The record is a 98-nucleotide sequence from Sphingobium algorifonticola, which matches "Glycine riboswitch aptamer" in Rfam.
The organism belongs to Sphingobium, within Bacteria.
It scores 63 bits against the family's covariance model.
Pairs were carried over by alignment from the consensus structure.

[Rfam]
RNA sequence: GGGCAUGAUACGGGAGAGUGCCGAGCGGUCAGCGCCGCGCGGACGCCGAAGGAGCAACCGCCCCGGAAUCUCUCAGGCCAAGGGACCGUAUCAUGGCU
Numbered sequence: 001g002g003g004c005a006u007g008a009u010a011c012g013g014g015a016g017a018g019u020g021c022c023g024a025g026c027g028g029u030c031a032g033c034g035c036c037g038c039g040c041g042g043a044c045g046c047c048g049a050a051g052g053a054g055c056a057a058c059c060g061c062c063c064c065g066g067a068a069u070c071u072c073u074c075a076g077g078c079c080a081a082g083g084g085a086c087c088g089u090a091u092c093a094u095g096g097c098u
Stems, first nucleotide, its partner, number of pairs: 006093008021042003045078003048074002052072003058066002